[Rfam]
RNA: Purine riboswitch aptamer
RNA sequence: AAGUAUCAAAAAAAUAUCACUCGUAUAAUAGCAGGAAUAUGGCCUGCGAGUCUCUACCGGAUAACCGUAAAUUAUCUGACUACGGGUAAGCAUUUAUAUGGG
Numbered sequence: 001a002a003g004u005a006u007c008a009a010a011a012a013a014a015u016a017u018c019a020c021u022c023g024u025a026u027a028a029u030a031g032c033a034g035g036a037a038u039a040u041g042g043c044c045u046g047c048g049a050g051u052c053u054c055u056a057c058c059g060g061a062u063a064a065c066c067g068u069a070a071a072u073u074a075u076c077u078g079a080c081u082a083c084g085g086g087u088a089a090g091c092a093u094u095u096a097u098a099u100g101g102g
Stems, first nucleotide, its partner, number of pairs: 019087007029049001031047005058078007